RNA sequence: UAAAAAGAAUUCAGAAUCAGGCCGGAGUGUUUAGCGCUCCGUAAACACGGUCGUACAUCCAGCCGGUAGCCUGGUUCCUUGCAUUGAGUGAUGUACGGAGUUUAUAGAGC
Numbered sequence: 001u002a003a004a005a006a007g008a009a010u011u012c013a014g015a016a017u018c019a020g021g022c023c024g025g026a027g028u029g030u031u032u033a034g035c036g037c038u039c040c041g042u043a044a045a046c047a048c049g050g051u052c053g054u055a056c057a058u059c060c061a062g063c064c065g066g067u068a069g070c071c072u073g074g075u076u077c078c079u080u081g082c083a084u085u086g087a088g089u090g091a092u093g094u095a096c097g098g099a100g101u102u103u104a105u106a107g108a109g110c
Stems, first nucleotide, its partner, number of pairs: 008102005014077009023041006045067002048065003080095001082093003